[Rfam]
RNA sequence: CAUCUCUGGAGAGAGCUCAAUGGAGCCACCAAAGGGGAAACUUGCUUCUUGGCAAGGUAACUCUCAGGUACCAAGGACAGAGAAGAAGAA
Numbered sequence: 001c002a003u004c005u006c007u008g009g010a011g012a013g014a015g016c017u018c019a020a021u022g023g024a025g026c027c028a029c030c031a032a033a034g035g036g037g038a039a040a041c042u043u044g045c046u047u048c049u050u051g052g053c054a055a056g057g058u059a060a061c062u063c064u065c066a067g068g069u070a071c072c073a074a075g076g077a078c079a080g081a082g083a084a085g086a087a088g089a090a
Base pairs, nucleotide, nucleotide: 001085003083004082005081006080007079008078015026016025017024018023028069029068030067032064035063036062037061041056042055043054044053

The record is a 90-nucleotide sequence from Brevibacillus sp. SYP-B805, which matches "Glycine riboswitch aptamer" in Rfam. Gene Ontology term of the family: glycine biosynthetic process.